[Rfam]
RNA sequence: AGGAAAUGAGGACAAUAACGCAAAGUCUCGACUAUGAUGAAGACUUCUAAUCCAACUCUGAUCCUCAAAUCUCA
Numbered sequence: 001a002g003g004a005a006a007u008g009a010g011g012a013c014a015a016u017a018a019c020g021c022a023a024a025g026u027c028u029c030g031a032c033u034a035u036g037a038u039g040a041a042g043a044c045u046u047c048u049a050a051u052c053c054a055a056c057u058c059u060g061a062u063c064c065u066c067a068a069a070u071c072u073c074a
Stems, first nucleotide, its partner, number of pairs: 001065004
A member of the RNA family "Small nucleolar RNA SNORD19" from Merluccius polli, 74 nucleotides long. The base pairs follow the family's consensus structure. On this family, see Huttenhofer et al., EMBO J 2001: "RNomics: an experimental approach that identifies 201 candidates for novel, small, non-messenger RNAs in mouse". Rfam 15.1 lists 1,431 matches to the family in 609 species. Gene Ontology terms of the family: RNA processing and nucleolus. The family's RNA type in Rfam is C/D-box small nucleolar RNA. Lineage of the source: Eukaryota > Craniata > Vertebrata > Neopterygii > Merluccius.